The family of this 619-nucleotide sequence from Rhizoctonia solani is "Nuclear RNase P". Rfam describes the family as follows. Ribonuclease P (RNase P) is a ubiquitous endoribonuclease, found in archaea, bacteria and eukarya as well as chloroplasts and mitochondria. Its best characterised activity is the generation of mature 5'-ends of tRNAs by cleaving the 5'-leader elements of precursor-tRNAs. NCBI's taxonomy places the organism under Eukaryota, Opisthokonta, Fungi, Rhizoctonia solani, Rhizoctonia solani AG-3. The match comes from Rfam's covariance-model search (58 bits).

RNA sequence: ACAGCUCAAAAGCCGCAUUUGCUCGUCACGCACUCGCCGAUUCUCUCGGCUUCUCGCGAGCGGGCUAAGGUCUGAGCGUUCUAGUCCCCUUGUAAUUGUGUCUAGCUGGCACCGGCCAUAACAAGCCGAGCAGAGCAUCAGACAUGCGCUCGCUGUUGUUCGUAUCGCCCAGAGACCCGCAAGGAGAGGGUAUAGCAGCAGCUCGAGCUUGGAACAACUCUGCGGGGACCGAGCCGUUUGAUUGCCUUGUCCUAUUUUAACCUCUUUCACACCCAACGCGCUAGUGUCGAGAGCUAGUGCCCGAUUCCUGCCUUUAGAGGAGUUGAGAAAUGGGGCCAUACUAAAUGCCGCUGCAGGGUAUGGCUCUGGAUCGCUUUCCACGCCGAUUGGACCAAGGAAGAAUAACAAGGCCAUCGACAGCGUCGUAACCUUGGCUGUUCUUGUACUCCUGUUCUCCGCAUCGCCCGCUGGCACCGCGGAGGUAAGCAGGCCACGCUUGGUGGUCCGGUUGGUUGCGGUGAUUGAGGAGGUUGGGUCGAGGCCAAACGGCUCUUUAGUUCACUUUGCGGCUCGCAUAUGUUUUCAUUGCGAAACUCGAUUCAGACUACUCUUGGGCUGU
Numbered sequence: 001a002c003a004g005c006u007c008a009a010a011a012g013c014c015g016c017a018u019u020u021g022c023u024c025g026u027c028a029c030g031c032a033c034u035c036g037c038c039g040a041u042u043c044u045c046u047c048g049g050c051u052u053c054u055c056g057c058g059a060g061c062g063g064g065c066u067a068a069g070g071u072c073u074g075a076g077c078g079u080u081c082u083a084g085u086c087c088c089c090u091u092g093u094a095a096u097u098g099u100g101u102c103u104a105g106c107u108g109g110c111a112c113c114g115g116c117c118a119u120a121a122c123a124a125g126c127c128g129a130g131c132a133g134a135g136c137a138u139c140a141g142a143c144a145u146g147c148g149c150u151c152g153c154u155g156u157u158g159u160u161c162g163u164a165u166c167g168c169c170c171a172g173a174g175a176c177c178c179g180c181a182a183g184g185a186g187a188g189g190g191u192a193u194a195g196c197a198g199c200a201g202c203u204c205g206a207g208c209u210u211g212g213a214a215c216a217a218c219u220c221u222g223c224g225g226g227g228a229c230c231g232a233g234c235c236g237u238u239u240g241a242u243u244g245c246c247u248u249g250u251c252c253u254a255u256u257u258u259a260a261c262c263u264c265u266u267u268c269a270c271a272c273c274c275a276a277c278g279c280g281c282u283a284g285u286g287u288c289g290a291g292a293g294c295u296a297g298u299g300c301c302c303g304a305u306u307c308c309u310g311c312c313u314u315u316a317g318a319g320g321a322g323u324u325g326a327g328a329a330a331u332g333g334g335g336c337c338a339u340a341c342u343a344a345a346u347g348c349c350g351c352u353g354c355a356g357g358g359u360a361u362g363g364c365u366c367u368g369g370a371u372c373g374c375u376u377u378c379c380a381c382g383c384c385g386a387u388u389g390g391a392c393c394a395a396g397g398a399a400g401a402a403u404a405a406c407a408a409g410g411c412c413a414u415c416g417a418c419a420g421c422g423u424c425g426u427a428a429c430c431u432u433g434g435c436u437g438u439u440c441u442u443g444u445a446c447u448c449c450u451g452u453u454c455u456c457c458g459c460a461u462c463g464c465c466c467g468c469u470g471g472c473a474c475c476g477c478g479g480a481g482g483u484a485a486g487c488a489g490g491c492c493a494c495g496c497u498u499g500g501u502g503g504u505c506c507g508g509u510u511g512g513u514u515g516c517g518g519u520g521a522u523u524g525a526g527g528a529g530g531u532u533g534g535g536u537c538g539a540g541g542c543c544a545a546a547c548g549g550c551u552c553u554u555u556a557g558u559u560c561a562c563u564u565u566g567c568g569g570c571u572c573g574c575a576u577a578u579g580u581u582u583u584c585a586u587u588g589c590g591a592a593a594c595u596c597g598a599u600u601c602a603g604a605c606u607a608c609u610c611u612u613g614g615g616c617u618g619u
Base pairs, nucleotide, nucleotide: 001619002618003617004616007613008612009611012570013569014568015567016566017565021061022060023059024058025057036050037049038048039047040046072603073602074601075600076599084229085228086227087226098112099111100110101109102108113128114127115126116125130223131222132221133220134219135218148208149207150206571591572590573589574588575587